[Rfam]
RNA sequence: CAGCAAAAUUCCCUGGGAAGGGAGUGAAAUUCCCUAAGGGAGUGAAAUUCCCUUGGAAGGGAGUGAAAUUCCCU
Numbered sequence: 001c002a003g004c005a006a007a008a009u010u011c012c013c014u015g016g017g018a019a020g021g022g023a024g025u026g027a028a029a030u031u032c033c034c035u036a037a038g039g040g041a042g043u044g045a046a047a048u049u050c051c052c053u054u055g056g057a058a059g060g061g062a063g064u065g066a067a068a069u070u071c072c073c074u
Stems, first nucleotide, its partner, number of pairs: 008025007029043005047064007
This 74-nucleotide RNA from Antrostomus carolinensis belongs to the Rfam family "Gut-1 RNA". The family's consensus secondary structure is taken from published work. Lineage of the source: Eukaryota > Deuterostomia > Dinosauria > Saurischia > Antrostomus. The family has 38 seed sequences and 51 matches in Rfam 15.1.